[Rfam]
RNA sequence: UGAAGCAGAAAAUAAAAUGAACAAAGUUUAUUUUUAGGAAUGUAUCGAUGAAAUACCCACGACUAAAAGGAGGGGCAAUAAAUAUU
Numbered sequence: 001u002g003a004a005g006c007a008g009a010a011a012a013u014a015a016a017a018u019g020a021a022c023a024a025a026g027u028u029u030a031u032u033u034u035u036a037g038g039a040a041u042g043u044a045u046c047g048a049u050g051a052a053a054u055a056c057c058c059a060c061g062a063c064u065a066a067a068a069g070g071a072g073g074g075g076c077a078a079u080a081a082a083u084a085u086u
Stems, first nucleotide, its partner, number of pairs: 008046002011043001016032006056075002060072001063069002

Rfam assigns this 86-nucleotide RNA sequence from Eubacterium sp. AF36-5BH to the family "GA-cis RNA".
The source organism's lineage runs through Bacteria, Bacillati, Bacillota, Clostridia and Eubacterium.
A search with the family's covariance model found it, with a score of 42 bits.
Rfam classes the family as a small RNA.